[Rfam]
RNA sequence: CAGUUAGAAAGCUCGUAGUUGGACUUAGGAGUGGGUCGAUCGGUCCGCCUCACGGUGAGCGCCGGUCUGCUUGUCCCUACUACCAAUGAUGUGCUCCUGGCCUUAAUUGGCCGGAUCGUUCCUCCGGUACUGUUACUUUUAAGAAGAUAGAGUUCUUAAAGCAGGCCUACGCUUGUAUACAUUACCCUGGGAUAACAUCAUAGGAUUUUGAUCCUAUUGUGUUGGCCUUUGGGAUGGAGUAAUGAUUAACAAGGACAGUUAGGGGCAUUCGUAUUUCAUAGUCAAAGGUGAAAUUCUUGGAUUUAUGAAAGGCAAACAACUACGAAAGCAUUUUCCAAGGAUAUUUUCAUAAAUCAAUAAUAAAAGUUGAGGGCUUGAAGAUGAUCAGAUACCGUCCUAGUCUUAAAAAUAAAUGUUGCCGACCAGGGAUCAGCGGAUGUUACUUUUAAGACUCCGCCGGCACCUUAUGAGAAAUCAAAGUCUUUCGGUUCUGGAGAGUAUGGUCGCAAGGCUAAAAUUUAAAGGAAU
Dot-bracket structure: (((.....(.(.(....(((........................................................................................................................................................................................................................................(((.(.((...((.(...(..((((((((....((......)).......))))))))..).........(....)....).))..)).)..)))....)))....).).....(((((....(...((((.........))))...).)))))...........((((((.(((..((.(((((.(((........)))))))).))..)))...((....))...)))....))))))).(((....((((....))))....)))........

Notes:
This 528-nucleotide part of an RNA from Gossypium schwendimanii belongs to the Rfam family "Eukaryotic small subunit ribosomal RNA". The match comes from Rfam's covariance-model search (1362 bits). The family is grouped with related families in Rfam's "SSU clan". Rfam links the family to the GO terms structural constituent of ribosome and ribosome.